Small nucleolar RNA snR60/Z15/Z230/Z193/J17: a 92-nucleotide sequence from Selaginella moellendorffii. The pairing is the family consensus, mapped onto this sequence. The family's RNA type in Rfam is C/D-box small nucleolar RNA. The literature on the family includes a 1999 paper in Science by Lowe and Eddy, "A computational screen for methylation guide snoRNAs in yeast". Its Rfam clan is "SNORD77 clan".
[Rfam]
RNA sequence: UUCUAGCGCGUGAUGAUAACAUAGUUCAGAUGAGUCCCACAAUGGGCGCUGACUAUAAGCACUAUGUCUUUCGCUCCUAUCUGACGCUUUGA
Numbered sequence: 001u002u003c004u005a006g007c008g009c010g011u012g013a014u015g016a017u018a019a020c021a022u023a024g025u026u027c028a029g030a031u032g033a034g035u036c037c038c039a040c041a042a043u044g045g046g047c048g049c050u051g052a053c054u055a056u057a058a059g060c061a062c063u064a065u066g067u068c069u070u071u072c073g074c075u076c077c078u079a080u081c082u083g084a085c086g087c088u089u090u091g092a
Stems, first nucleotide, its partner, number of pairs: 005088004
Lineage of the source: Eukaryota > Streptophyta > Tracheophyta > Lycopodiopsida > Selaginella.